[Rfam]
RNA sequence: GAAAACUAUUUAGGUAGUGCCUCGUAAUAGGCCUCCGGGGGUAGAGCACUGUAAUCGUUGGGGGGGUCACUUAGAUCUACCCCGCGAUAGCAAACUCCGAAUACCGGAGAGUCGUUUUACGGGAGACAGACAUCGGGUGCUAACGUCCGGUGUCGAGAGGGAAACAACCCAGACCCACAGCUAAGGUCCCAAAUGAUGUGCUAAGUGGUAAACGAAGUGGGAAGGCUAAGACAGCCAGGAAGUUGGCUUAGAAGCAGCCAUCCUUUAAAGAAAGCGUAAUAGCUCACUGGUCGAGUCGUCCUGCGCGGAAGAUGUAACGGGGCUAAGCACAUAACCGAAGCUUGGG
Numbered sequence: 001g002a003a004a005a006c007u008a009u010u011u012a013g014g015u016a017g018u019g020c021c022u023c024g025u026a027a028u029a030g031g032c033c034u035c036c037g038g039g040g041g042u043a044g045a046g047c048a049c050u051g052u053a054a055u056c057g058u059u060g061g062g063g064g065g066g067u068c069a070c071u072u073a074g075a076u077c078u079a080c081c082c083c084g085c086g087a088u089a090g091c092a093a094a095c096u097c098c099g100a101a102u103a104c105c106g107g108a109g110a111g112u113c114g115u116u117u118u119a120c121g122g123g124a125g126a127c128a129g130a131c132a133u134c135g136g137g138u139g140c141u142a143a144c145g146u147c148c149g150g151u152g153u154c155g156a157g158a159g160g161g162a163a164a165c166a167a168c169c170c171a172g173a174c175c176c177a178c179a180g181c182u183a184a185g186g187u188c189c190c191a192a193a194u195g196a197u198g199u200g201c202u203a204a205g206u207g208g209u210a211a212a213c214g215a216a217g218u219g220g221g222a223a224g225g226c227u228a229a230g231a232c233a234g235c236c237a238g239g240a241a242g243u244u245g246g247c248u249u250a251g252a253a254g255c256a257g258c259c260a261u262c263c264u265u266u267a268a269a270g271a272a273a274g275c276g277u278a279a280u281a282g283c284u285c286a287c288u289g290g291u292c293g294a295g296u297c298g299u300c301c302u303g304c305g306c307g308g309a310a311g312a313u314g315u316a317a318c319g320g321g322g323c324u325a326a327g328c329a330c331a332u333a334a335c336c337g338a339a340g341c342u343u344g345g346g
Stems, first nucleotide, its partner, number of pairs: 005018005020125001021123007029116001030113003033109006044098001045096002050092003054088004061081002064078005129154010159170003174346004179342003185336003194333001196332006213307002217304006224297003234291005240264001242262001245259003265269001270285001274283002
RNA: Bacterial large subunit ribosomal RNA, nucleotides 813 to 1158
Organism: Sulfuritortus calidifontis